[Rfam]
RNA sequence: GCAAAGUAUUUCGAACCCAUUUAGGGUACCAACCGAGUGUAGACACCACGGUGGUAAAACAAUACGGGCCCGUCCGGUCAAAAUAAACGUAAGUU
Numbered sequence: 001g002c003a004a005a006g007u008a009u010u011u012c013g014a015a016c017c018c019a020u021u022u023a024g025g026g027u028a029c030c031a032a033c034c035g036a037g038u039g040u041a042g043a044c045a046c047c048a049c050g051g052u053g054g055u056a057a058a059a060c061a062a063u064a065c066g067g068g069c070c071c072g073u074c075c076g077g078u079c080a081a082a083a084u085a086a087a088c089g090u091a092a093g094u095u
Base pairs, nucleotide, nucleotide: 006065007064008063009062010061015027017026018025028055029054030053033051034050035049037046038045040091041090067079068078069077070076
SAM-I/IV (S-adenosyl methionine) riboswitch aptamer: a 95-nucleotide sequence from Flavobacteria bacterium BAL38. The source organism's lineage runs through Bacteria, Pseudomonadati, Bacteroidota, Flavobacteriia and Flavobacteriales. Gene Ontology terms of the family: S-adenosylmethionine metabolic process and regulation of gene expression. Its Rfam clan is "SAM clan". On this family, see Trausch et al., PNAS 2014: "Structural basis for diversity in the SAM clan of riboswitches".